[Rfam]
RNA sequence: GUUGUGACGGGCAGCUGUGACACGCGGUCCAAGCCCGGUCGCCGGGACCGCGCCGAGCCAAUGGCGAGACCGACCCGCGAGAUG
Numbered sequence: 001g002u003u004g005u006g007a008c009g010g011g012c013a014g015c016u017g018u019g020a021c022a023c024g025c026g027g028u029c030c031a032a033g034c035c036c037g038g039u040c041g042c043c044g045g046g047a048c049c050g051c052g053c054c055g056a057g058c059c060a061a062u063g064g065c066g067a068g069a070c071c072g073a074c075c076c077g078c079g080a081g082a083u084g
Base pairs, nucleotide, nucleotide: 003082005080008077009076010075011074014058015057023052024051025050026049027048028047029046037071038070039067040066041065042064043063